[Rfam]
RNA: Glycine riboswitch aptamer
RNA sequence: AUGAAGAGUUCGGGAGAGACUGCCUUGACUGGCGGAGCCGAAGGUGAGAAAAACUCUCAGGCAAAAGGACCGGAUUUGGACG
Numbered sequence: 001a002u003g004a005a006g007a008g009u010u011c012g013g014g015a016g017a018g019a020c021u022g023c024c025u026u027g028a029c030u031g032g033c034g035g036a037g038c039c040g041a042a043g044g045u046g047a048g049a050a051a052a053a054c055u056c057u058c059a060g061g062c063a064a065a066a067g068g069a070c071c072g073g074a075u076u077u078g079g080a081c082g
Stems, first nucleotide, its partner, number of pairs: 006077008020035004037062003040058002044056001046054001